[Rfam]
A member of the RNA family "ZMP/ZTP riboswitch aptamer (pfl RNA motif)" from Kribbella caucasensis, 87 nucleotides long. Pairs were carried over by alignment from the consensus structure, which is taken from published work. It scores 60 bits against the family's covariance model.
RNA sequence: GGCGCCGACCGCGACUGGCGAAGGGUGGAGCACCACCGGGGAGUGGUCGGCACAGCAGGAAAGGCGUCGUCCGCCUGGGCGCCUCCG
Numbered sequence: 001g002g003c004g005c006c007g008a009c010c011g012c013g014a015c016u017g018g019c020g021a022a023g024g025g026u027g028g029a030g031c032a033c034c035a036c037c038g039g040g041g042a043g044u045g046g047u048c049g050g051c052a053c054a055g056c057a058g059g060a061a062a063g064g065c066g067u068c069g070u071c072c073g074c075c076u077g078g079g080c081g082c083c084u085c086c087g
Base pairs, nucleotide, nucleotide: 004051005050006049007048008047009046010045011044012043015040016039017075018074019073020072025036026035027034028033064082065081066080067079068078